RNA: Small nucleolar RNA Z105
Nucleotides: 074
Stems, first nucleotide, its partner, number of pairs: 006069002009066001031050002035046001
Number, partner (000 for none) and nucleotide at each position: 001000a002000a003000g004000g005000c006069a007068u008000a009066a010000u011000g012000a013000g014000a015000a016000u017000g018000a019000a020000u021000u022000u023000a024000u025000g026000a027000a028000a029000c030000a031050u032049u033000a034000u035046c036000u037000g038000a039000u040000c041000a042000u043000u044000u045000u046035g047000a048000u049032g050031a051000u052000c053000u054000a055000u056000a057000a058000u059000c060000u061000c062000c063000u064000a065000c066009u067000c068007a069006u070000u071000c072000u073000g074000a